[Rfam]
RNA sequence: UCACCAGCAAGGAGACUUGAAGUAACAACGAAUGGUGAGAAGUCAGCCGAAGCCAUAGUAGCGGGCCAGUCCGUGAAGGGC
Numbered sequence: 001u002c003a004c005c006a007g008c009a010a011g012g013a014g015a016c017u018u019g020a021a022g023u024a025a026c027a028a029c030g031a032a033u034g035g036u037g038a039g040a041a042g043u044c045a046g047c048c049g050a051a052g053c054c055a056u057a058g059u060a061g062c063g064g065g066c067c068a069g070u071c072c073g074u075g076a077a078g079g080g081c
Base pairs, nucleotide, nucleotide: 001030005022008019009018010017011016043050044049052081053080054079061074062073063072064071065070
Group II catalytic intron D1-D4-1: an 81-nucleotide RNA from Hornefia porci. The match comes from Rfam's covariance-model search (51 bits). Taxonomically the source falls in Hornefia (Bacteria, Bacillati, Clostridia, Anaerovoracaceae). A reference for the family is Bonen and Vogel (2001), "The ins and outs of group II introns", Trends Genet. Pairs were carried over by alignment from the consensus structure. From the family's description: Group II introns are found in rRNA, tRNA and mRNA of organelles in fungi, plants and protists, and also in mRNA in bacteria.